[Rfam]
RNA sequence: CAAAUAGUCAAAGGGGAGUAGCGUUGGAGUUGGAACCAAUUCCAAAAUAAAGUCGUCACUACAUGGUUUCUAUAACCAUCGGCUUUAUUGGCAGCUAGUUUGCU
Numbered sequence: 001c002a003a004a005u006a007g008u009c010a011a012a013g014g015g016g017a018g019u020a021g022c023g024u025u026g027g028a029g030u031u032g033g034a035a036c037c038a039a040u041u042c043c044a045a046a047a048u049a050a051a052g053u054c055g056u057c058a059c060u061a062c063a064u065g066g067u068u069u070c071u072a073u074a075a076c077c078a079u080c081g082g083c084u085u086u087a088u089u090g091g092c093a094g095c096u097a098g099u100u101u102g103c104u
Base pairs, nucleotide, nucleotide: 025044026043027042028041029040030039046089047088048087049086050085051084052083053082054081055080063079064078065077066076067075
Rfam assigns this 104-nucleotide RNA sequence from Oceanobacillus piezotolerans to the family "Manganese Mn2+ riboswitch aptamer (yybP-ykoY)". The organism belongs to Oceanobacillus, within Bacteria.